The family of this 189-nucleotide RNA from Metabacillus sediminilitoris is "6S / SsrS RNA". From the family's description: E. coli 6S RNA was the first non coding RNA to be sequenced, but its function was unknown until recently. For this family Rfam cites "6S RNA in Rhodobacter sphaeroides: 6S RNA and pRNA transcript levels peak in late exponential phase and gene deletion causes a high salt stress phenotype" (Elkina et al., RNA Biol, 2017). The family's consensus secondary structure is taken from published work. Rfam classes the family as a non-coding RNA gene.
[Rfam]
RNA sequence: ACAGUCCUGAUGUGUUCGUUGUACACCUAGUUUUGACCUAACAUUUUUUAUACGGGAGCUUGGGUUUCUGGACCUGCGUAAAUGCCUCUAACUCGUACUUGAGGACUUACAAACCUCUGGAAUAAAGCACCCACCUGCUAAGGGCGGGAUCAAAACGAGGGAAACGGCGACGGCACGAUUGGGACUACU
Numbered sequence: 001a002c003a004g005u006c007c008u009g010a011u012g013u014g015u016u017c018g019u020u021g022u023a024c025a026c027c028u029a030g031u032u033u034u035g036a037c038c039u040a041a042c043a044u045u046u047u048u049u050a051u052a053c054g055g056g057a058g059c060u061u062g063g064g065u066u067u068c069u070g071g072a073c074c075u076g077c078g079u080a081a082a083u084g085c086c087u088c089u090a091a092c093u094c095g096u097a098c099u100u101g102a103g104g105a106c107u108u109a110c111a112a113a114c115c116u117c118u119g120g121a122a123u124a125a126a127g128c129a130c131c132c133a134c135c136u137g138c139u140a141a142g143g144g145c146g147g148g149a150u151c152a153a154a155a156c157g158a159g160g161g162a163a164a165c166g167g168c169g170a171c172g173g174c175a176c177g178a179u180u181g182g183g184a185c186u187a188c189u
Stems, first nucleotide, its partner, number of pairs: 003186009012176004017172003030156003034152003037148002054132003058128004063123001065122001068120005080108002085104004